[Rfam]
RNA sequence: CUGGGGAUGACGAAGAAAAUCGUUCGGAUUCCCAUUGAUUUCUAAUCAGAAAUGUGAUCUUUCACCAGCUACUUCUGACUCAG
Number, nucleotide and partner (000 for none) at each position: 001c083002u082003g081004g080005g079006g000007a000008u000009g000010a000011c000012g000013a000014a000015g000016a000017a000018a000019a000020u000021c000022g000023u000024u000025c000026g000027g000028a000029u000030u000031c000032c000033c000034a000035u000036u000037g000038a000039u000040u000041u000042c000043u000044a000045a000046u000047c000048a000049g000050a000051a000052a000053u000054g000055u000056g000057a000058u000059c000060u000061u000062u000063c000064a000065c000066c000067a000068g000069c000070u000071a000072c000073u000074u000075c000076u000077g000078a000079c005080u004081c003082a002083g001
RNA: Small nucleolar RNA R12
Organism: Zizania palustris